[Rfam]
RNA sequence: AGUUGGUCCAAGGAUUGUGGGUUAUUGUUAAACUGUUUAACAUUGUCUCUCACCCCCAACCAUACUUGACUAGCUUCAC
Numbered sequence: 001a002g003u004u005g006g007u008c009c010a011a012g013g014a015u016u017g018u019g020g021g022u023u024a025u026u027g028u029u030a031a032a033c034u035g036u037u038u039a040a041c042a043u044u045g046u047c048u049c050u051c052a053c054c055c056c057c058a059a060c061c062a063u064a065c066u067u068g069a070c071u072a073g074c075u076u077c078a079c
Base pairs, nucleotide, nucleotide: 001075002074003073004072005071006070007069008068010067011066014063015062016058017057019055020054021053026042027041028040030038031037
Dot-bracket structure: ((((((((.((..((((.(((....(((.((.....)).)))..........))).))...))..))))))))))....
About this RNA
Shown here is a 79-nucleotide sequence from Loxodonta africana, a member of the family "Y RNA". It is annotated as a non-coding RNA gene. The literature on the family includes a 2000 paper in Nucleic Acids Res by Teunissen et al., "Conserved features of Y RNAs: a comparison of experimentally derived secondary structures". A search with the family's covariance model found it, with a score of 58 bits. Lineage of the source: Eukaryota > Metazoa > Craniata > Amniota > Loxodonta. From the family's description: Y RNAs are components of the Ro ribonucleoprotein particle (Ro RNP), in association with Ro60 and La proteins. The Y RNAs and Ro60 and La proteins are well conserved, but the function of the Ro RNP is not known. In humans the RNA component can be one of four small RNAs -- hY1, hY3, hY4 and hY5. These small RNAs are predicted to fold into a conserved secondary structure containing three stem structures. The largest of the four, hY1, contains an additional hairpin. This family includes a significant number of annotated pseudogenes and the model is expected to discriminate poorly between real and Y RNA related pseudogenes.